[Rfam]
Nucleotides: 048
Base pairs, nucleotide, nucleotide: 002025003024004023005022006021007018008017009016010015
Number, partner (000 for none) and nucleotide at each position: 001000a002025g003024g004023g005022c006021u007018g008017g009016u010015c011000u012000a013000g014000a015010g016009a017008c018007c019000c020000u021006a022005g023004c024003c025002c026000a027000c028000c029000g030000a031000a032000a033000g034000g035000c036000g037000g038000g039000g040000g041000c042000c043000u044000u045000c046000c047000c048000c
Shown here is a 48-nucleotide RNA sequence, a member of the family "DUF3800-XI RNA". It is one of the family's seed sequences. Rfam describes the family as follows. Actinobacteria, Firmicutes, Proteobacteria, Spirochaetes (1 example). The base pairs follow the family's consensus structure, which is taken from published work. It is annotated as a small RNA.